RNA: chrB-b RNA
RNA sequence: CGGGGACGCGCAGACUCCCCGUCAGACGGCUCUAGCCUUCCAAGCUCUGC
Numbered sequence: 001c002g003g004g005g006a007c008g009c010g011c012a013g014a015c016u017c018c019c020c021g022u023c024a025g026a027c028g029g030c031u032c033u034a035g036c037c038u039u040c041c042a043a044g045c046u047c048u049g050c
Stems, first nucleotide, its partner, number of pairs: 001021006010050005025040002028037002